Small nucleolar RNA SNORD100: an 85-nucleotide sequence from Denticeps clupeoides. The base pairs follow the family's consensus structure, which was predicted with RNAalifold. It scores 67 bits against the family's covariance model. On this family, see Galardi et al., Mol Cell Biol 2002: "Purified box C/D snoRNPs are able to reproduce site-specific 2'-O-methylation of target RNA in vitro".

RNA sequence: GGUGUCUGUGAUGAGAACUUGGCUCCCUCUACUGAAGUGCAGUGAGGAGAACCGCCAUUCGUUACCCAAUUUGGACUGAGACGCG
Numbered sequence: 001g002g003u004g005u006c007u008g009u010g011a012u013g014a015g016a017a018c019u020u021g022g023c024u025c026c027c028u029c030u031a032c033u034g035a036a037g038u039g040c041a042g043u044g045a046g047g048a049g050a051a052c053c054g055c056c057a058u059u060c061g062u063u064a065c066c067c068a069a070u071u072u073g074g075a076c077u078g079a080g081a082c083g084c085g
Stems, first nucleotide, its partner, number of pairs: 002084005